[Rfam]
Nucleotides: 074
Base pairs, nucleotide, nucleotide: 003021004020005019006018007017008016009015010014023061024060025059028056029055030054031053032052033051034050035049036048037047
Number, partner (000 for none) and nucleotide at each position: 001000a002000a003021u004020u005019a006018g007017u008016c009015a010014a011000u012000g013000g014010u015009u016008g017007a018006c019005u020004g021003a022000u023061c024060g025059c026000u027000a028056u029055c030054a031053g032052g033051u034050a035049a036048u037047u038000u039000g040000u041000g042000c043000u044000u045000u046000u047037g048036g049035u050034u051033a052032c053031c054030u055029g056028a057000c058000u059025g060024c061023g062000u063000c064000u065000c066000u067000u068000u069000u070000c071000c072000u073000a074000u

Description: Shown here is a 74-nucleotide RNA from Prosthecochloris sp. CIB 2401, a member of the family "Chlorobi-RRM RNA". The base pairs follow the family's consensus structure, which is taken from published work. The source organism's lineage runs through Bacteria, Pseudomonadati, Chlorobiota, Chlorobiales and Prosthecochloris. The match comes from Rfam's covariance-model search (79 bits). By type it is a cis-regulatory element.